[Rfam]
RNA sequence: UUUUGGCAAUGAUGCGAGAGGUUGCAGAUACACCCGGCUCCUUUGCCAAGGCGGGCUAUCUGGAAAUUUUCGUGGAGCAAGUCUAUUUUUGAAAAAUGGACGA
Numbered sequence: 001u002u003u004u005g006g007c008a009a010u011g012a013u014g015c016g017a018g019a020g021g022u023u024g025c026a027g028a029u030a031c032a033c034c035c036g037g038c039u040c041c042u043u044u045g046c047c048a049a050g051g052c053g054g055g056c057u058a059u060c061u062g063g064a065a066a067u068u069u070u071c072g073u074g075g076a077g078c079a080a081g082u083c084u085a086u087u088u089u090u091g092a093a094a095a096a097u098g099g100a101c102g103a
Base pairs, nucleotide, nucleotide: 014073015072016071018070019069020068021067025062026061027060028059029058082103083102087100088099089098